[Rfam]
RNA sequence: CAAAAUGACUCGGGGUGCCCUUCUUUAUUGAAGGCUGAGAAAUACCCGUACCACCUGAUCUGGAUAAUGCCAGCGUAGGGAAGUCAGACACUGCCCGU
Numbered sequence: 001c002a003a004a005a006u007g008a009c010u011c012g013g014g015g016u017g018c019c020c021u022u023c024u025u026u027a028u029u030g031a032a033g034g035c036u037g038a039g040a041a042a043u044a045c046c047c048g049u050a051c052c053a054c055c056u057g058a059u060c061u062g063g064a065u066a067a068u069g070c071c072a073g074c075g076u077a078g079g080g081a082a083g084u085c086a087g088a089c090a091c092u093g094c095c096c097g098u
Stems, first nucleotide, its partner, number of pairs: 006086005011048004016042001017035003021031001054079004060073004
Rfam assigns this 98-nucleotide sequence from Citrobacter rodentium to the family "TPP riboswitch aptamer (THI element)".
Vitamin B(1) in its active form thiamin pyrophosphate (TPP) is an essential coenzyme that is synthesised by coupling of pyrimidine and thiazole moieties in bacteria. The previously detected thiamin-regulatory element, thi box was extended, resulting in a new, highly conserved RNA secondary structure, the THI element, which is widely distributed in eubacteria and also occurs in some archaea. Analysis of operon structures identified a large number of new candidate thiamin-regulated genes, mostly transporters, in various prokaryotic organisms. The THI element is a riboswitch that directly binds to TPP to regulate gene expression through a variety of mechanisms in archaea, bacteria and eukaryotes. through a variety of mechanisms in archaea, bacteria and eukaryotes. Tandem TPP riboswitches have been reported where both TPP riboswitches respond independently to TPP. The structure of TPP riboswitch has been reported for Escherichia coli and Arabidopsis thaliana.
The match comes from Rfam's covariance-model search (74 bits).
The organism belongs to Citrobacter rodentium, within Bacteria.
Pairs were carried over by alignment from the consensus structure, which is taken from published work.